RNA sequence: GUCUUCCUUGUCUUGGGGAGCAAAAAUGUUCAAUGAACGUAUAGUGAGGACAUUGCUGCUGACACCAAUGAUAUUACCCCCGCUCGACGAUCGUUCGCGAUUGUAGUUCGGAAUUUUUGGAACA
Numbered sequence: 001g002u003c004u005u006c007c008u009u010g011u012c013u014u015g016g017g018g019a020g021c022a023a024a025a026a027u028g029u030u031c032a033a034u035g036a037a038c039g040u041a042u043a044g045u046g047a048g049g050a051c052a053u054u055g056c057u058g059c060u061g062a063c064a065c066c067a068a069u070g071a072u073a074u075u076a077c078c079c080c081c082g083c084u085c086g087a088c089g090a091u092c093g094u095u096c097g098c099g100a101u102u103g104u105a106g107u108u109c110g111g112a113a114u115u116u117u118u119g120g121a122a123c124a
Base pairs, nucleotide, nucleotide: 005019006018007017008016009015020059021058022057025054026053027052028051029050030049031048037045038044080111081110082109085106088103089102090101091100092099093098
Dot-bracket structure: ....(((((.....)))))(((..(((((((.....((.....))..)))))))..)))....................(((..(..((((((....))))))..)..))).............
Rfam assigns this 124-nucleotide sequence from Drosophila rhopaloa to the family "U4atac minor spliceosomal RNA". The family is grouped with related families in Rfam's "U4 clan". Its family is annotated with mRNA 5'-splice site recognition, spliceosomal tri-snRNP complex assembly and U4atac snRNP in the Gene Ontology. Rfam's curators write: U4atac is an essential component of the minor U12-type spliceosome complex which is required for removal of the rarer class of eukaryotic introns (AT-AC, U12-type).